Rfam assigns this 585-nucleotide part of an RNA to the family "Eukaryotic large subunit ribosomal RNA".
[Rfam]
RNA sequence: GAAGACCCUGUUGAGCUUGAUUCGCGAUUGGCUUGGUUGGGCGAGAGCGCAGGUGUAGUUUAGGUGGGACUGCUUUACGGCGCAAGUGAAAGACCACUACUGCGUUCCUCGUUCAACUCACUCGAUGAGGACCACGAGAGCGGCCGCAUUCGGGGCGGUGUCGGCGAGCGCAAGGUGCUAAGCGAGGGGUCCCCCGCGCUAAGGGCGCUUCGAAGGUUUCGGCUGGAGGGGUGUUCUGCGGGACCAGGUCUCUCGCGAGGGCGAUCGAGGACAGAGUCAGUUCUGAAUUUAACUGGGGCGGUGUGCCCGCGAAACUCUAGCGCGGGCGCCCCAAGGCCAGCUUCAGAAGGGGGAGAAACCCUUGGUAGAGCGAAAGGGCAAAUGCUGGCUUGAGGAUGCUUUUCAGUAGGAGGGAUCCGUGUGAAAGCAAGGCCUAUCGAUCCUUUUGUGUCGCCCUUAGGGCGACGAUGGGAGAGCUCUAUUUUUACUGCUUCCCGCAAGAGGUGUCAGAAAAGUUACCACAGGGAUAACUGGCUUGUGGCAGCCAAGCGUUCUUAGCGACGUUGCUUUUUGAUCCUUCGAUGU
Numbered sequence: 001g002a003a004g005a006c007c008c009u010g011u012u013g014a015g016c017u018u019g020a021u022u023c024g025c026g027a028u029u030g031g032c033u034u035g036g037u038u039g040g041g042c043g044a045g046a047g048c049g050c051a052g053g054u055g056u057a058g059u060u061u062a063g064g065u066g067g068g069a070c071u072g073c074u075u076u077a078c079g080g081c082g083c084a085a086g087u088g089a090a091a092g093a094c095c096a097c098u099a100c101u102g103c104g105u106u107c108c109u110c111g112u113u114c115a116a117c118u119c120a121c122u123c124g125a126u127g128a129g130g131a132c133c134a135c136g137a138g139a140g141c142g143g144c145c146g147c148a149u150u151c152g153g154g155g156c157g158g159u160g161u162c163g164g165c166g167a168g169c170g171c172a173a174g175g176u177g178c179u180a181a182g183c184g185a186g187g188g189g190u191c192c193c194c195c196g197c198g199c200u201a202a203g204g205g206c207g208c209u210u211c212g213a214a215g216g217u218u219u220c221g222g223c224u225g226g227a228g229g230g231g232u233g234u235u236c237u238g239c240g241g242g243a244c245c246a247g248g249u250c251u252c253u254c255g256c257g258a259g260g261g262c263g264a265u266c267g268a269g270g271a272c273a274g275a276g277u278c279a280g281u282u283c284u285g286a287a288u289u290u291a292a293c294u295g296g297g298g299c300g301g302u303g304u305g306c307c308c309g310c311g312a313a314a315c316u317c318u319a320g321c322g323c324g325g326g327c328g329c330c331c332c333a334a335g336g337c338c339a340g341c342u343u344c345a346g347a348a349g350g351g352g353g354a355g356a357a358a359c360c361c362u363u364g365g366u367a368g369a370g371c372g373a374a375a376g377g378g379c380a381a382a383u384g385c386u387g388g389c390u391u392g393a394g395g396a397u398g399c400u401u402u403u404c405a406g407u408a409g410g411a412g413g414g415a416u417c418c419g420u421g422u423g424a425a426a427g428c429a430a431g432g433c434c435u436a437u438c439g440a441u442c443c444u445u446u447u448g449u450g451u452c453g454c455c456c457u458u459a460g461g462g463c464g465a466c467g468a469u470g471g472g473a474g475a476g477c478u479c480u481a482u483u484u485u486u487a488c489u490g491c492u493u494c495c496c497g498c499a500a501g502a503g504g505u506g507u508c509a510g511a512a513a514a515g516u517u518a519c520c521a522c523a524g525g526g527a528u529a530a531c532u533g534g535c536u537u538g539u540g541g542c543a544g545c546c547a548a549g550c551g552u553u554c555u556u557a558g559c560g561a562c563g564u565u566g567c568u569u570u571u572u573g574a575u576c577c578u579u580c581g582a583u584g585u
Stems, first nucleotide, its partner, number of pairs: 007525004012521002014517005020288004027281007036117010046106007063098005072081002121269005132261002140165002143162001182256010291304001292302003305327006330432002336389006343369002347363005370379002394418004399413004420429003443503006450495001534575001536573001538572001540568006549559002